[Rfam]
RNA sequence: UUCUUAUCACGAGAGGUGGAGGGACUGACCCUACGAAGCCUCGGCAACCGGCUAUUGCACGGUGCCAAGUUCAGAGGAUCUAUAAUAGAUCCGAAGAUGAGAU
Numbered sequence: 001u002u003c004u005u006a007u008c009a010c011g012a013g014a015g016g017u018g019g020a021g022g023g024a025c026u027g028a029c030c031c032u033a034c035g036a037a038g039c040c041u042c043g044g045c046a047a048c049c050g051g052c053u054a055u056u057g058c059a060c061g062g063u064g065c066c067a068a069g070u071u072c073a074g075a076g077g078a079u080c081u082a083u084a085a086u087a088g089a090u091c092c093g094a095a096g097a098u099g100a101g102a103u
Base pairs, nucleotide, nucleotide: 002102003101004100005099006098007097008096013042014041015040016039017038021031022030023029025074026073027072028071043066044065045064046063048062049061050058052057070095076092077091078090079089080088081087
This 103-nucleotide sequence from Paenalkalicoccus suaedae belongs to the Rfam family "SAM riboswitch aptamer (S box leader)". The base pairs follow the family's consensus structure, which is taken from published work. Clan: SAM clan. The source organism's lineage runs through Bacteria, Bacillati, Caryophanales, Bacillaceae and Paenalkalicoccus.